Rfam assigns this 266-nucleotide RNA sequence from Niallia circulans to the family "Bacterial large signal recognition particle RNA". The family's consensus secondary structure is taken from published work. Rfam's curators put it in the seed alignment. On this family, see Rosenblad et al., Nucleic Acids Res 2003: "SRPDB: Signal Recognition Particle Database". The organism belongs to Niallia, within Bacteria. By type it is a non-coding RNA gene.
[Rfam]
RNA sequence: CCGUGCUAAGCGGGGGAGGUAGCGGUGCCCUGUACUCGCAAUCCGCUCUAGCGAGGCUGAAUUCCUUUCUGAGGCUGGUAUCCUGUAGGGUCUGCCUUAAGUAAGUGGUGUUGACGUCCGGGUCCUGCGCAAUGGGAAUCCAUGAACCAUGUCAGGUCCGGAAGGAAGCAGCAUUAAGUGGACACCCCCAUGUGCCGCAGGGUUACCUGGACUGAGCUAACUACUUAAGUAACGCUUAUGGGUGCCAGUCGACAGAAGGUGCACGG
Numbered sequence: 001c002c003g004u005g006c007u008a009a010g011c012g013g014g015g016g017a018g019g020u021a022g023c024g025g026u027g028c029c030c031u032g033u034a035c036u037c038g039c040a041a042u043c044c045g046c047u048c049u050a051g052c053g054a055g056g057c058u059g060a061a062u063u064c065c066u067u068u069c070u071g072a073g074g075c076u077g078g079u080a081u082c083c084u085g086u087a088g089g090g091u092c093u094g095c096c097u098u099a100a101g102u103a104a105g106u107g108g109u110g111u112u113g114a115c116g117u118c119c120g121g122g123u124c125c126u127g128c129g130c131a132a133u134g135g136g137a138a139u140c141c142a143u144g145a146a147c148c149a150u151g152u153c154a155g156g157u158c159c160g161g162a163a164g165g166a167a168g169c170a171g172c173a174u175u176a177a178g179u180g181g182a183c184a185c186c187c188c189c190a191u192g193u194g195c196c197g198c199a200g201g202g203u204u205a206c207c208u209g210g211a212c213u214g215a216g217c218u219a220a221c222u223a224c225u226u227a228a229g230u231a232a233c234g235c236u237u238a239u240g241g242g243u244g245c246c247a248g249u250c251g252a253c254a255g256a257a258g259g260u261g262c263a264c265g266g
Stems, first nucleotide, its partner, number of pairs: 001266006009058003013031004018026001020024001035055005064259005073250005082242008093231002097228006105221002107218003116212008124201006130192002133190004139182005149174004157166003
Dot-bracket structure: ((((((..(((.((((.(.(...).).))))...(((((...........)))))))).....(((((....(((((....((((((((...((..((((((..(((((......((((((((((((((((.((((..(((((.....((((....(((....)))....))))...)))))....))))))...))))))...))))))))...))).)).)))))).))...))))))))...)))))....))))).))))))